[Rfam]
RNA: epsC RNA
RNA sequence: AGGUAAUGCCUACUGUACCUUUAUCAUUGUAGGCACUCGGCCAUGCUGUGGGUGAUUUCACCUUAGACAUCUAUUGUCAAGGGUGUGGCGUGAGGGGGGGUUCGAUGCCCC
Dot-bracket structure: [[[[..(((((((...]]]]........)))))))((((((((((((..(((((....)))))..((((.....))))...)))))))).))))..(((((.....)))))